[Rfam]
RNA sequence: CCCUAGCUUGGUUCUAAAUCCCAUGGUGCCUUCUCCUUGGGAAAAACAGAGAAGGCACUAUGAGAUUUAGAAUCAAGUUAGG
Numbered sequence: 001c002c003c004u005a006g007c008u009u010g011g012u013u014c015u016a017a018a019u020c021c022c023a024u025g026g027u028g029c030c031u032u033c034u035c036c037u038u039g040g041g042a043a044a045a046a047c048a049g050a051g052a053a054g055g056c057a058c059u060a061u062g063a064g065a066u067u068u069a070g071a072a073u074c075a076a077g078u079u080a081g082g
Stems, first nucleotide, its partner, number of pairs: 002082019022062014038048002